[Rfam]
L13-Bacteroidia ribosomal protein leader: a 74-nucleotide sequence. On this family, see Eckert and Weinberg, BMC Microbiol 2020: "Discovery of 20 novel ribosomal leader candidates in bacteria and archaea". It is annotated as a cis-regulatory leader. Pairs were carried over by alignment from the consensus structure, which is taken from published work. The sequence is in the family's curated seed alignment.
RNA sequence: GGGGUGAACUUAGAGCCCCGUGGAUGUGCGUGUUAAUAGCCGUGCCUUUGGCCGGACAUGGUGGUUAGUGAAUC
Numbered sequence: 001g002g003g004g005u006g007a008a009c010u011u012a013g014a015g016c017c018c019c020g021u022g023g024a025u026g027u028g029c030g031u032g033u034u035a036a037u038a039g040c041c042g043u044g045c046c047u048u049u050g051g052c053c054g055g056a057c058a059u060g061g062u063g064g065u066u067a068g069u070g071a072a073u074c
Base pairs, nucleotide, nucleotide: 001019002018003017004016005015033068034067035066036065037064039062040061041060042059043058044057046055047054